Shown here is a 95-nucleotide RNA sequence from Flintibacter faecis, a member of the family "THF (Tetrahydrofolate) riboswitch aptamer". For this family Rfam cites "A eubacterial riboswitch class that senses the coenzyme tetrahydrofolate" (Ames et al., Chem Biol, 2010). Rfam links the family to the GO term tetrahydrofolate metabolic process. The match comes from Rfam's covariance-model search (76 bits).
RNA sequence: GACAGAGUAGACUUAAGCGCGUCAAGUGCCGCCGGAUGGGAGGUCGCCGGCGGACGAAGGGAGCGUCCCGCGUCGCUAAAGCCGCAUCCGCUGCC
Numbered sequence: 001g002a003c004a005g006a007g008u009a010g011a012c013u014u015a016a017g018c019g020c021g022u023c024a025a026g027u028g029c030c031g032c033c034g035g036a037u038g039g040g041a042g043g044u045c046g047c048c049g050g051c052g053g054a055c056g057a058a059g060g061g062a063g064c065g066u067c068c069c070g071c072g073u074c075g076c077u078a079a080a081g082c083c084g085c086a087u088c089c090g091c092u093g094c095c
Stems, first nucleotide, its partner, number of pairs: 001095001003093003010083001012081003016077004020072003026055002029053007039089003043085001059069004